About this RNA
c-di-GMP-I riboswitch aptamer: an 84-nucleotide sequence from Novimethylophilus kurashikiensis. The match comes from Rfam's covariance-model search (76 bits). The base pairs follow the family's consensus structure, which is taken from published work. The organism belongs to Novimethylophilus, within Bacteria.

RNA sequence: UAGUAACAAGGGCAAAUCCAUCGAAAGAUGGAGACGCAAAAUCACCGGUCUACGGGCUUAUGCCACGACAGCGGGAUUGCCGGC
Numbered sequence: 001u002a003g004u005a006a007c008a009a010g011g012g013c014a015a016a017u018c019c020a021u022c023g024a025a026a027g028a029u030g031g032a033g034a035c036g037c038a039a040a041a042u043c044a045c046c047g048g049u050c051u052a053c054g055g056g057c058u059u060a061u062g063c064c065a066c067g068a069c070a071g072c073g074g075g076a077u078u079g080c081c082g083g084c
Stems, first nucleotide, its partner, number of pairs: 012037002017032006040078004045074003048069003055064003